Bacterial RNase P class A: a 425-nucleotide RNA from Synechococcus sp. CBW1004.
By type it is a ribozyme.
It scores 213 bits against the family's covariance model.

[Rfam]
RNA sequence: AAAGCAGGCGAGGUGAUCGCGAUCGGCGCGUCUGCCGUGCCUUCGGCGCGGUGGCGGGGCCGGUUGAGGAAAGUCCGGGCUCCCGAACGGCCAGGCCUGCUGGGUAACGCCCAGUGCGGGUGACCGUGAGGACAGUGCCACAGAAACACACCGCCGAUGGCUCCGCUGCCGCUGCGGCGUUGGUGGGGAUCAGGCAAGGGUGCAAAGGUGCGGUAAGAGCGCACCAGCGGCAUCGAGAGGUGCCGGCUCGGUAAACCCCGGCCGGGAGCAAGGCCCAGGGACAACGGUUGGCCGACUUCCCCGUCCCGACUUCCAUGUGCCGCUCGAGGCCGCCGGUAACGGCGGUCCCAGACAGAUGAUCACCCUCCGGCCCUGCCCUCGGGCGGAUCCGGAGAACAGAACCCGGCUUACGUCCUGCUUUCACC
Numbered sequence: 001a002a003a004g005c006a007g008g009c010g011a012g013g014u015g016a017u018c019g020c021g022a023u024c025g026g027c028g029c030g031u032c033u034g035c036c037g038u039g040c041c042u043u044c045g046g047c048g049c050g051g052u053g054g055c056g057g058g059g060c061c062g063g064u065u066g067a068g069g070a071a072a073g074u075c076c077g078g079g080c081u082c083c084c085g086a087a088c089g090g091c092c093a094g095g096c097c098u099g100c101u102g103g104g105u106a107a108c109g110c111c112c113a114g115u116g117c118g119g120g121u122g123a124c125c126g127u128g129a130g131g132a133c134a135g136u137g138c139c140a141c142a143g144a145a146a147c148a149c150a151c152c153g154c155c156g157a158u159g160g161c162u163c164c165g166c167u168g169c170c171g172c173u174g175c176g177g178c179g180u181u182g183g184u185g186g187g188g189a190u191c192a193g194g195c196a197a198g199g200g201u202g203c204a205a206a207g208g209u210g211c212g213g214u215a216a217g218a219g220c221g222c223a224c225c226a227g228c229g230g231c232a233u234c235g236a237g238a239g240g241u242g243c244c245g246g247c248u249c250g251g252u253a254a255a256c257c258c259c260g261g262c263c264g265g266g267a268g269c270a271a272g273g274c275c276c277a278g279g280g281a282c283a284a285c286g287g288u289u290g291g292c293c294g295a296c297u298u299c300c301c302c303g304u305c306c307c308g309a310c311u312u313c314c315a316u317g318u319g320c321c322g323c324u325c326g327a328g329g330c331c332g333c334c335g336g337u338a339a340c341g342g343c344g345g346u347c348c349c350a351g352a353c354a355g356a357u358g359a360u361c362a363c364c365c366u367c368c369g370g371c372c373c374u375g376c377c378c379u380c381g382g383g384c385g386g387a388u389c390c391g392g393a394g395a396a397c398a399g400a401a402c403c404c405g406g407c408u409u410a411c412g413u414c415c416u417g418c419u420u421u422c423a424c425c
Stems, first nucleotide, its partner, number of pairs: 001421008010411001012364007020066008071409003075406005080268004094263003098260002100114005115129001116127004130258002135256002137252003151199002153195003158192003162188002207225006227247001228245007272321003280313002328347008